[Rfam]
A member of the RNA family "speF leader" from Aminobacter sp. MSH1, 151 nucleotides long. It is annotated as a cis-regulatory leader. This family is a putative regulatory RNA structure that is found upstream of the speF gene encoding ornithine decarboxylase in Agrobacterium tumefaciens and other alpha-proteobacteria. NCBI's taxonomy places the organism under Bacteria, Pseudomonadati, Alphaproteobacteria, Hyphomicrobiales, Aminobacter. Its family is annotated with regulation of gene expression in the Gene Ontology.
RNA sequence: UUCCGGCUGUCCAAAAGCCGGGGUUACUGAAGAGGCACACCUUCAUUGCCGGCAGUGCGGAACGGGUCUUCCCAUUUCCAAGCCAAGGCAGACAAAGCGAACCGAAGCCGGGCUGGCUCAGGUUCACCGCCGCGUGAAGCGCAUUUAUGGA
Number, nucleotide and partner (000 for none) at each position: 001u023002u022003c021004c020005g019006g018007c017008u016009g000010u000011c000012c000013a000014a000015a000016a008017g007018c006019c005020g004021g003022g002023g001024u000025u000026a000027c000028u000029g000030a000031a000032g000033a000034g050035g049036c048037a047038c000039a000040c000041c000042u000043u000044c000045a000046u000047u037048g036049c035050c034051g000052g000053c000054a000055g000056u000057g130058c129059g128060g000061a000062a000063c000064g000065g000066g000067u000068c000069u000070u000071c000072c000073c000074a000075u000076u000077u000078c000079c000080a000081a000082g000083c091084c000085a000086a000087g000088g000089c000090a000091g083092a000093c000094a000095a000096a000097g000098c000099g000100a000101a000102c111103c110104g109105a000106a000107g000108c000109c104110g103111g102112g000113c000114u000115g000116g000117c000118u000119c000120a000121g000122g000123u000124u000125c000126a000127c000128c059129g058130c057131c000132g000133c000134g000135u000136g000137a000138a000139g000140c000141g000142c000143a000144u000145u000146u000147a000148u000149g000150g000151a000